[Rfam]
RNA sequence: UCAUUUAUAUAAUUUUAUUCGUCUAGUUAUGACAGACCUACACUUGACUGCGCAGAAUCACUUGCAUGAAUUACUGUGUGAACAAUAAAUUUUUAAGAU
Numbered sequence: 001u002c003a004u005u006u007a008u009a010u011a012a013u014u015u016u017a018u019u020c021g022u023c024u025a026g027u028u029a030u031g032a033c034a035g036a037c038c039u040a041c042a043c044u045u046g047a048c049u050g051c052g053c054a055g056a057a058u059c060a061c062u063u064g065c066a067u068g069a070a071u072u073a074c075u076g077u078g079u080g081a082a083c084a085a086u087a088a089a090u091u092u093u094u095a096a097g098a099u
Stems, first nucleotide, its partner, number of pairs: 002097001004095001007091001010088001012086002015082002020078003024073005